Rfam assigns this 142-nucleotide RNA from Rhinolophus ferrumequinum to the family "Small nucleolar RNA SNORA79".
It scores 77 bits against the family's covariance model.
By type it is an H/ACA-box small nucleolar RNA.
Pairs were carried over by alignment from the consensus structure, which was predicted with RNAalifold.
The organism belongs to Rhinolophus, within Eukaryota.
Rfam links the family to the GO terms RNA processing and nucleolus.
[Rfam]
RNA sequence: UCAAUCCCUCUCACUGCUUGGAGGCUUAGGUAGUGGGAUGUUAGUCCAUCAUAUAUCUAAGCUGACUUGUCUUCACUGAGAGCACUAUGAGGAUGGUUGGCUGUCCAUUAGUGCCUUCUGAUUUUUGCUGAGUCAAACAAUU
Numbered sequence: 001u002c003a004a005u006c007c008c009u010c011u012c013a014c015u016g017c018u019u020g021g022a023g024g025c026u027u028a029g030g031u032a033g034u035g036g037g038a039u040g041u042u043a044g045u046c047c048a049u050c051a052u053a054u055a056u057c058u059a060a061g062c063u064g065a066c067u068u069g070u071c072u073u074c075a076c077u078g079a080g081a082g083c084a085c086u087a088u089g090a091g092g093a094u095g096g097u098u099g100g101c102u103g104u105c106c107a108u109u110a111g112u113g114c115c116u117u118c119u120g121a122u123u124u125u126u127g128c129u130g131a132g133u134c135a136a137a138c139a140a141u142u
Stems, first nucleotide, its partner, number of pairs: 009038005015032004064134006077121001079119003082114005091106005